This 152-nucleotide sequence from Pseudobutyrivibrio xylanivorans belongs to the Rfam family "glmS glucosamine-6-phosphate activated ribozyme aptamer". The family's RNA type in Rfam is riboswitch. The base pairs follow the family's consensus structure, which is taken from published work. It scores 68 bits against the family's covariance model. For this family Rfam cites "Control of gene expression by a natural metabolite-responsive ribozyme" (Winkler et al., Nature, 2004).
[Rfam]
RNA sequence: UUCCUCGUUUUAGCGCCAUGCACCAGUUAAUACUGGUUAACGAGGAGGAGGGAUUUUCGAAAAUUCGGCGGGUGCCCUCCCGUGCAGCCUAGCGCGUACGCAUUGGCAAAUAUGCAGGUAACUGCAAAACAAAAACAGUGCGAUAGGUAUUA
Numbered sequence: 001u002u003c004c005u006c007g008u009u010u011u012a013g014c015g016c017c018a019u020g021c022a023c024c025a026g027u028u029a030a031u032a033c034u035g036g037u038u039a040a041c042g043a044g045g046a047g048g049a050g051g052g053a054u055u056u057u058c059g060a061a062a063a064u065u066c067g068g069c070g071g072g073u074g075c076c077c078u079c080c081c082g083u084g085c086a087g088c089c090u091a092g093c094g095c096g097u098a099c100g101c102a103u104u105g106g107c108a109a110a111u112a113u114g115c116a117g118g119u120a121a122c123u124g125c126a127a128a129a130c131a132a133a134a135a136c137a138g139u140g141c142g143a144u145a146g147g148u149a150u151u152a
Stems, first nucleotide, its partner, number of pairs: 022037006048079005057068004080096001082095004099142007113126005